[Rfam]
RNA sequence: AGGACAAAAACUCUCGUAGAAUAAUGCGCUACAAGAGCUUUUGUCCGGGUGCCCCUCGCGGGACGCCCAUCAUGGGAGAGGAGAAACCGGACGAAGAGCUUAUGGGGAAACGUAAGUCUUCUCCGCGG
Numbered sequence: 001a002g003g004a005c006a007a008a009a010a011c012u013c014u015c016g017u018a019g020a021a022u023a024a025u026g027c028g029c030u031a032c033a034a035g036a037g038c039u040u041u042u043g044u045c046c047g048g049g050u051g052c053c054c055c056u057c058g059c060g061g062g063a064c065g066c067c068c069a070u071c072a073u074g075g076g077a078g079a080g081g082a083g084a085a086a087c088c089g090g091a092c093g094a095a096g097a098g099c100u101u102a103u104g105g106g107g108a109a110a111c112g113u114a115a116g117u118c119u120u121c122u123c124c125g126c127g128g
Stems, first nucleotide, its partner, number of pairs: 011037004016032004038076003042072001088125004093121004098117005